A member of the RNA family "FMN riboswitch aptamer (RFN element)" from Acinetobacter qingfengensis, 139 nucleotides long. From the family's description: The RFN element is a highly conserved domain that is found frequently in the 5'-untranslated regions of prokaryotic mRNAs that encode for flavin mononucleotide (FMN) biosynthesis and transport proteins. A search with the family's covariance model found it, with a score of 121 bits.

[Rfam]
RNA sequence: UUAUAUCUUCAGGGCGGGGUGUGAUUCCCCACCGGUGGUAAAUUGCAACUGCAAAAGCCCACGAGCGAUAAAUUUUUCUUAUUGCUGAUUUGGUGUAAUUCCAAAGCCGACGGUAUAGUCCGGAUGAAAGAAGACGACC
Numbered sequence: 001u002u003a004u005a006u007c008u009u010c011a012g013g014g015c016g017g018g019g020u021g022u023g024a025u026u027c028c029c030c031a032c033c034g035g036u037g038g039u040a041a042a043u044u045g046c047a048a049c050u051g052c053a054a055a056a057g058c059c060c061a062c063g064a065g066c067g068a069u070a071a072a073u074u075u076u077u078c079u080u081a082u083u084g085c086u087g088a089u090u091u092g093g094u095g096u097a098a099u100u101c102c103a104a105a106g107c108c109g110a111c112g113g114u115a116u117a118g119u120c121c122g123g124a125u126g127a128a129a130g131a132a133g134a135c136g137a138c139c
Stems, first nucleotide, its partner, number of pairs: 004136001006134005017029003031119002033109002035062004057107002065085003089105005111122003